[Rfam]
The record is a 64-nucleotide RNA sequence from Danionella cerebrum, which matches "Selenocysteine insertion sequence 1" in Rfam.
RNA sequence: CAUGUGUUAAUGAUGAUCUGUUUUAAACUCUAUGCAGAAAGAGCAGAUUUGAUGCUUAUACAUG
Numbered sequence: 001c002a003u004g005u006g007u008u009a010a011u012g013a014u015g016a017u018c019u020g021u022u023u024u025a026a027a028c029u030c031u032a033u034g035c036a037g038a039a040a041g042a043g044c045a046g047a048u049u050u051g052a053u054g055c056u057u058a059u060a061c062a063u064g
Stems, first nucleotide, its partner, number of pairs: 001064005015049010029038003
Dot-bracket structure: (((((.........((((((((((....(((....))).))))))))))..........)))))
A search with the family's covariance model found it, with a score of 36 bits. Rfam classes the family as a cis-regulatory element. Rfam links the family to the GO term selenocysteine incorporation.